[Rfam]
The family of this 77-nucleotide sequence from Alligator sinensis is "Mammalian CPEB3 ribozyme". Pairs were carried over by alignment from the consensus structure, which is taken from published work. It scores 37 bits against the family's covariance model.

RNA sequence: AGUCGCUAGCUCAAGGCCAUGGCAGAAGUGCUCUUGGCGCAGCCUUGUCAUCCUCCAAUGAAUCUGUGAAUUCUGCU
Numbered sequence: 001a002g003u004c005g006c007u008a009g010c011u012c013a014a015g016g017c018c019a020u021g022g023c024a025g026a027a028g029u030g031c032u033c034u035u036g037g038c039g040c041a042g043c044c045u046u047g048u049c050a051u052c053c054u055c056c057a058a059u060g061a062a063u064c065u066g067u068g069a070a071u072u073c074u075g076c077u
Base pairs, nucleotide, nucleotide: 014045015044016043017042021077022076023075024074025073026072027071028040029039030038049066050065054061055060